[Rfam]
RNA sequence: AAGCAACACUCUGUGGCAGAUGGUCAAAAGUGUCUGACACAAUCUGAGCUUGCUAUAGCAAGAAAGUCUAACCUAUUCCGAUGUUCUCUCUCUGUGGGACAAGCCGUUAUAUAGACUUUAACAGA
Numbered sequence: 001a002a003g004c005a006a007c008a009c010u011c012u013g014u015g016g017c018a019g020a021u022g023g024u025c026a027a028a029a030g031u032g033u034c035u036g037a038c039a040c041a042a043u044c045u046g047a048g049c050u051u052g053c054u055a056u057a058g059c060a061a062g063a064a065a066g067u068c069u070a071a072c073c074u075a076u077u078c079c080g081a082u083g084u085u086c087u088c089u090c091u092c093u094g095u096g097g098g099a100c101a102a103g104c105c106g107u108u109a110u111a112u113a114g115a116c117u118u119u120a121a122c123a124g125a
Stems, first nucleotide, its partner, number of pairs: 009048003012041004017036006064118007074111003079106002082103001087099004
RNA: Small nucleolar RNA SNORA28